[Rfam]
RNA sequence: AGCCCUCCCGCGCCGGGGUCAUGGCGCGGCUUCCCUCCCUGUUGGACUGCCCGGGCUUCGGCCCGGGCAUUUUU
Numbered sequence: 001a002g003c004c005c006u007c008c009c010g011c012g013c014c015g016g017g018g019u020c021a022u023g024g025c026g027c028g029g030c031u032u033c034c035c036u037c038c039c040u041g042u043u044g045g046a047c048u049g050c051c052c053g054g055g056c057u058u059c060g061g062c063c064c065g066g067g068c069a070u071u072u073u074u
Stems, first nucleotide, its partner, number of pairs: 008029007049068008
The record is a 74-nucleotide RNA from Frigidibacter mobilis, which matches "Singlet oxygen resistance RNA X" in Rfam. Its family is annotated with response to photooxidative stress in the Gene Ontology. Taxonomically the source falls in Frigidibacter (Bacteria, Pseudomonadati, Pseudomonadota, Alphaproteobacteria). The pairing is the family consensus, mapped onto this sequence. SorX (RSs2461)like SorY is a singlet oxygen induced sRNA that counteracts oxidative stress by targeting mRNA for a transporter in Rhodobacter.